Background: A member of the RNA family "nrdJ RNA" from Streptomyces sp. F-3, 86 nucleotides long. The organism belongs to Streptomyces, within Bacteria. A search with the family's covariance model found it, with a score of 58 bits.

RNA sequence: AUCAGUCGCGGGCGGCAGCGAGGGUGCCCGCGGUCAUUCGGACAGAACACUGUGCCCCUGGAACAAAAGGGGUACUUCGGGGCGUU
Numbered sequence: 001a002u003c004a005g006u007c008g009c010g011g012g013c014g015g016c017a018g019c020g021a022g023g024g025u026g027c028c029c030g031c032g033g034u035c036a037u038u039c040g041g042a043c044a045g046a047a048c049a050c051u052g053u054g055c056c057c058c059u060g061g062a063a064c065a066a067a068a069g070g071g072g073u074a075c076u077u078c079g080g081g082g083c084g085u086u
Stems, first nucleotide, its partner, number of pairs: 005035001006033009016023001052075008